[Rfam]
RNA sequence: GAUCAAGUGGUGAGCUAUUAACUUGCUCCAAUGUCAUGAUUGGAGUUAGUUAUUCUCCUAUGAUUCCUAAGUUUUAAGCCUCUGAUGAUC
Numbered sequence: 001g002a003u004c005a006a007g008u009g010g011u012g013a014g015c016u017a018u019u020a021a022c023u024u025g026c027u028c029c030a031a032u033g034u035c036a037u038g039a040u041u042g043g044a045g046u047u048a049g050u051u052a053u054u055c056u057c058c059u060a061u062g063a064u065u066c067c068u069a070a071g072u073u074u075u076a077a078g079c080c081u082c083u084g085a086u087g088a089u090c
Stems, first nucleotide, its partner, number of pairs: 001089001003088003042058004